[Rfam]
RNA: mir-30 microRNA precursor family
RNA sequence: UCUGUUGCUGUAAACAUCCCCGACUGGAAGCUGUAAGAGAAAUUCUAGCUUUCAGUCAGAUGUUUGCUGCAUCCGG
Numbered sequence: 001u002c003u004g005u006u007g008c009u010g011u012a013a014a015c016a017u018c019c020c021c022g023a024c025u026g027g028a029a030g031c032u033g034u035a036a037g038a039g040a041a042a043u044u045c046u047a048g049c050u051u052u053c054a055g056u057c058a059g060a061u062g063u064u065u066g067c068u069g070c071a072u073c074c075g076g
Stems, first nucleotide, its partner, number of pairs: 002075001004073001006071001008069001010067009023056010